[Rfam]
Nucleotides: 095
Base pairs, nucleotide, nucleotide: 006083007082008081009080010079011045012044013043014042016039017031018030019029020028021027051076052075053074057070058069059068060067
Number, partner (000 for none) and nucleotide at each position: 001000c002000a003000c004000u005000g006083g007082c008081u009080u010079u011045a012044g013043g014042g015000g016039u017031g018030c019029u020028u021027c022000u023000g024000c025000a026000g027021g028020a029019a030018g031017c032000u033000g034000a035000g036000a037000u038000c039016a040000a041000a042014c043013c044012c045011u046000u047000u048000g049000a050000a051076c052075c053074u054000g055000a056000u057070c058069c059068g060067g061000g062000u063000a064000a065000u066000a067060c068059c069058g070057g071000c072000g073000a074053a075052g076051g077000g078000a079010a080009a081008a082007g083006c084000a085000u086000g087000g088000c089000c090000c091000a092000c093000c094000u095000g
Rfam assigns this 95-nucleotide sequence from Cnuella takakiae to the family "TPP riboswitch aptamer (THI element)". The family's consensus secondary structure is taken from published work. It scores 84 bits against the family's covariance model. The source organism's lineage runs through Bacteria, Bacteroidota, Chitinophagia, Chitinophagaceae and Cnuella.